[Rfam]
RNA sequence: CUCUUAUUUAGAGCGGUGGAGGGAUGUGCCCGAUGAAACCCGGCAACCGGCAAUCUUUAGUAGAUUGUAAGGUGCCAAUUCACACAGGAAGAUUUCCUGGAAGAUGAGAG
Numbered sequence: 001c002u003c004u005u006a007u008u009u010a011g012a013g014c015g016g017u018g019g020a021g022g023g024a025u026g027u028g029c030c031c032g033a034u035g036a037a038a039c040c041c042g043g044c045a046a047c048c049g050g051c052a053a054u055c056u057u058u059a060g061u062a063g064a065u066u067g068u069a070a071g072g073u074g075c076c077a078a079u080u081c082a083c084a085c086a087g088g089a090a091g092a093u094u095u096c097c098u099g100g101a102a103g104a105u106g107a108g109a110g
Base pairs, nucleotide, nucleotide: 001110002109003108004107005106006105007104008103013041015040016039017038021031022030023029025084026083027082028081042076043075044074045073047072048071050068051067052066053065054064055063080102085099086098087097088096089095090094